This 131-nucleotide sequence from Albula glossodonta belongs to the Rfam family "Small nucleolar RNA SNORA77". Rfam describes the family as follows. ACA63 (SNORA77) is a member of the H/ACA class of snoRNAs that guide the sites of modification of uridines to pseudouridines. This snoRNA was identified by computational screening and its expression in mouse experimentally verified by Northern blot and primer extension analysis. ACA63 is proposed to guide the pseudouridylation of 18S rRNA U814. Pairs were carried over by alignment from the consensus structure, which was predicted with RNAalifold. NCBI's taxonomy places the organism under Eukaryota, Actinopterygii, Neopterygii, Elopocephalai, Albula. For this family Rfam cites "A computational screen for mammalian pseudouridylation guide H/ACA RNAs" (Schattner et al., RNA, 2006).
RNA sequence: GCAGACUCACUCUGUCCCUUGCUGCUGAAUCCAGCCUGGUACUUUUUCUGUCUGCUACAUCAAUAUUGCAGAAUGUAAACUUACACUGGCUCUUUUCAUGGGCAGGUGUUUUCAUGUUCUGGAACACGUUG
Numbered sequence: 001g002c003a004g005a006c007u008c009a010c011u012c013u014g015u016c017c018c019u020u021g022c023u024g025c026u027g028a029a030u031c032c033a034g035c036c037u038g039g040u041a042c043u044u045u046u047u048c049u050g051u052c053u054g055c056u057a058c059a060u061c062a063a064u065a066u067u068g069c070a071g072a073a074u075g076u077a078a079a080c081u082u083a084c085a086c087u088g089g090c091u092c093u094u095u096u097c098a099u100g101g102g103c104a105g106g107u108g109u110u111u112u113c114a115u116g117u118u119c120u121g122g123a124a125c126a127c128g129u130u131g
Stems, first nucleotide, its partner, number of pairs: 001055006014042002017039002022034003067122001069121006075113001077111004085107002